[Rfam]
RNA sequence: UUCUUAUCCAGAGUGGUGGAGGGACUGGCCCGAUGAAGCCCGGCAACCUGCUGAUCUUUUCGAUUGGCAAGGUGCCAACUCCUGCAAGACAGCGGUCUUGAAAGAUAAGGA
Numbered sequence: 001u002u003c004u005u006a007u008c009c010a011g012a013g014u015g016g017u018g019g020a021g022g023g024a025c026u027g028g029c030c031c032g033a034u035g036a037a038g039c040c041c042g043g044c045a046a047c048c049u050g051c052u053g054a055u056c057u058u059u060u061c062g063a064u065u066g067g068c069a070a071g072g073u074g075c076c077a078a079c080u081c082c083u084g085c086a087a088g089a090c091a092g093c094g095g096u097c098u099u100g101a102a103a104g105a106u107a108a109g110g111a
Base pairs, nucleotide, nucleotide: 001111002110003109004108005107006106007105008104013041015040016039017038021031022030023029025084027082028081042076043075044074045073047072048071049069050068051067052066053065054064055063080103085100086099087098088097089096090095
RNA: SAM riboswitch aptamer (S box leader)